[Rfam]
Small nucleolar RNA R38: a 90-nucleotide sequence. Rfam 15.1 lists 2,295 matches to the family in 1,305 species. Rfam describes the family as follows. snoR38 is a C/D box small nucleolar RNA conserved across yeast, human, Arabidopsis and rice. It is encoded in the intron of elongation factor-1 gamma in both pombe and cerevisiae. snoR38 guides the methylation of 2'-O-ribose sites in 28S rRNA.
RNA sequence: CAAGGUGAAUGAUGAAAUCACAAGUAAAUACAGUUAUCCCUGUCUGAUUCCUUUCUAAGGGUGCUGAGAAUACUUAAAUCUGACACAUUA
Numbered sequence: 001c002a003a004g005g006u007g008a009a010u011g012a013u014g015a016a017a018u019c020a021c022a023a024g025u026a027a028a029u030a031c032a033g034u035u036a037u038c039c040c041u042g043u044c045u046g047a048u049u050c051c052u053u054u055c056u057a058a059g060g061g062u063g064c065u066g067a068g069a070a071u072a073c074u075u076a077a078a079u080c081u082g083a084c085a086c087a088u089u090a
Stems, first nucleotide, its partner, number of pairs: 002089002005086003

The literature on the family includes a 1995 paper in Trends Biochem Sci by Bachellerie et al., "Antisense snoRNAs: a family of nucleolar RNAs with long complementarities to rRNA". It is one of the family's seed sequences.